The family of this 242-nucleotide RNA sequence is "HNH endonuclease-associated RNA and ORF (HEARO) RNA". A reference for the family is Weinberg et al. (2009), "Exceptional structured noncoding RNAs revealed by bacterial metagenome analysis", Nature.
[Rfam]
RNA sequence: GUCAACUACCCUAGCUCACGCAGGGGGCAUGUCCCGUGAGGGACAACGCAAGAGUUGAUUAGGGGGCUUUAAAAACAUGGAGAAACAUAUGAAAGAGAAGCAGAAGUUAGAUAGGAGAGAUACAUACACACCUGCGGAUGCUCCACAAGUCCGUGGCAACUGUGAUCAUGCAUUAAACAGAGAGGAAACUCUCAGUGUGCAUGGUUUAAAAACCCCUUCUAACAACCCCGAUGUGGACCUAC
Numbered sequence: 001g002u003c004a005a006c007u008a009c010c011c012u013a014g015c016u017c018a019c020g021c022a023g024g025g026g027g028c029a030u031g032u033c034c035c036g037u038g039a040g041g042g043a044c045a046a047c048g049c050a051a052g053a054g055u056u057g058a059u060u061a062g063g064g065g066g067c068u069u070u071a072a073a074a075a076c077a078u079g080g081a082g083a084a085a086c087a088u089a090u091g092a093a094a095g096a097g098a099a100g101c102a103g104a105a106g107u108u109a110g111a112u113a114g115g116a117g118a119g120a121u122a123c124a125u126a127c128a129c130a131c132c133u134g135c136g137g138a139u140g141c142u143c144c145a146c147a148a149g150u151c152c153g154u155g156g157c158a159a160c161u162g163u164g165a166u167c168a169u170g171c172a173u174u175a176a177a178c179a180g181a182g183a184g185g186a187a188a189c190u191c192u193c194a195g196u197g198u199g200c201a202u203g204g205u206u207u208a209a210a211a212a213c214c215c216c217u218u219c220u221a222a223c224a225a226c227c228c229c230g231a232u233g234u235g236g237a238c239c240u241a242c
Stems, first nucleotide, its partner, number of pairs: 001059007010027002014021002030045006062229004067100004106223006114215002128163002132156008142237006165205009177196002180193005
Rfam classes the family as a non-coding RNA gene.